[Rfam]
The family of this 145-nucleotide RNA from Bradyrhizobium diazoefficiens is "Alphaproteobacterial sRNA BjrC1505". Rfam's curators put it in the seed alignment. NCBI's taxonomy places the organism under Bacteria, Pseudomonadati, Pseudomonadota, Alphaproteobacteria, Bradyrhizobium diazoefficiens. A reference for the family is Madhugiri et al. (2012), "Small RNAs of the Bradyrhizobium/Rhodopseudomonas lineage and their analysis", RNA Biol. The pairing is the family consensus, mapped onto this sequence.
RNA sequence: AUUCGCUCGUUUACCGUCGAUUAAGCUUUCGGCUUUAUGACUGGAACUGUCCUCGUUUGGACACCGAGUGGCUCCUGUCCACUCUGUUUGACGCCUCCCUGUUAUCAACUUUCAAAGCCGCCGGUCUUCCGGCGGCUCUUUUUUG
Numbered sequence: 001a002u003u004c005g006c007u008c009g010u011u012u013a014c015c016g017u018c019g020a021u022u023a024a025g026c027u028u029u030c031g032g033c034u035u036u037a038u039g040a041c042u043g044g045a046a047c048u049g050u051c052c053u054c055g056u057u058u059g060g061a062c063a064c065c066g067a068g069u070g071g072c073u074c075c076u077g078u079c080c081a082c083u084c085u086g087u088u089u090g091a092c093g094c095c096u097c098c099c100u101g102u103u104a105u106c107a108a109c110u111u112u113c114a115a116a117g118c119c120g121c122c123g124g125u126c127u128u129c130c131g132g133c134g135g136c137u138c139u140u141u142u143u144u145g
Stems, first nucleotide, its partner, number of pairs: 002045004006016001017039001022037004027032001049062004066084006090103004114139001116137008